A member of the RNA family "MIR812 microRNA precursor family" from Oryza rufipogon, 206 nucleotides long.
RNA sequence: AAGAACUCAAUUCCUGGAUAUCCGUGUCUAACAUUUGACCGUUUAUCUUAUUUUAAAAAAAUAUAAAAAAAUAAAAAGAUAAGUCAUGCAUAAAGUAUUGUUCAUGUUUUAUCAUCUAACAAUAAUAAAAAUACUAAUCAUAAAAAAAAUUUCAUAUAAGACGGACGGUCAAACGUUGGACACGAAAACCGAAGAAUUCGGUCUUU
Numbered sequence: 001a002a003g004a005a006c007u008c009a010a011u012u013c014c015u016g017g018a019u020a021u022c023c024g025u026g027u028c029u030a031a032c033a034u035u036u037g038a039c040c041g042u043u044u045a046u047c048u049u050a051u052u053u054u055a056a057a058a059a060a061a062u063a064u065a066a067a068a069a070a071a072u073a074a075a076a077a078g079a080u081a082a083g084u085c086a087u088g089c090a091u092a093a094a095g096u097a098u099u100g101u102u103c104a105u106g107u108u109u110u111a112u113c114a115u116c117u118a119a120c121a122a123u124a125a126u127a128a129a130a131a132u133a134c135u136a137a138u139c140a141u142a143a144a145a146a147a148a149a150u151u152u153c154a155u156a157u158a159a160g161a162c163g164g165a166c167g168g169u170c171a172a173a174c175g176u177u178g179g180a181c182a183c184g185a186a187a188a189c190c191g192a193a194g195a196a197u198u199c200g201g202u203c204u205u206u
Stems, first nucleotide, its partner, number of pairs: 027180006034173011046161006